[Rfam]
RNA: Glycine riboswitch aptamer
RNA sequence: CGACCCCGCGCGGGAGAGUCCCCGCACCCGGACCCGCGCGCCACCGGCGCCGGCUCCGGGCACGGGGCGCCGAAGGGGCAACCUCCCCGGAACCUCUCAGGCGCCAGGACCGCGCGGGCAGG
Number, nucleotide and partner (000 for none) at each position: 001c000002g000003a000004c000005c000006c117007c116008g115009c114010g113011c112012g111013g110014g000015a000016g000017a000018g000019u000020c067021c066022c065023c064024g000025c000026a000027c000028c000029c000030g000031g000032a000033c000034c000035c000036g000037c000038g000039c000040g000041c000042c000043a000044c000045c000046g000047g000048c000049g000050c000051c000052g000053g000054c000055u000056c000057c000058g000059g000060g000061c000062a000063c000064g023065g022066g021067g020068c000069g102070c101071c100072g098073a097074a000075g000076g096077g095078g094079c000080a000081a000082c090083c089084u000085c000086c000087c000088c000089g083090g082091a000092a000093c000094c078095u077096c076097u073098c072099a000100g071101g070102c069103g000104c000105c000106a000107g000108g000109a000110c013111c012112g011113c010114g009115c008116g007117g006118g000119c000120a000121g000122g000